This 64-nucleotide RNA from Saimiri boliviensis belongs to the Rfam family "U7 small nuclear RNA". The family's consensus secondary structure was predicted with PFOLD. About the family: Animal histone pre-mRNAs are spliced by a different mechanism than nuclear pre-mRNAs and self-splicing introns. This processing involves the U7 snRNP, which contains only one RNA species: U7. NCBI's taxonomy places the organism under Eukaryota, Sarcopterygii, Dipnotetrapodomorpha, Euarchontoglires, Saimiri boliviensis.

[Rfam]
RNA sequence: UAGUGUCAUAACUUUUUAGAAUUUGUCUAGCAGACCUUCUGGUUUUCACCAUAACAUGGCCCCC
Numbered sequence: 001u002a003g004u005g006u007c008a009u010a011a012c013u014u015u016u017u018a019g020a021a022u023u024u025g026u027c028u029a030g031c032a033g034a035c036c037u038u039c040u041g042g043u044u045u046u047c048a049c050c051a052u053a054a055c056a057u058g059g060c061c062c063c064c
Stems, first nucleotide, its partner, number of pairs: 033061001035059002037054002040051004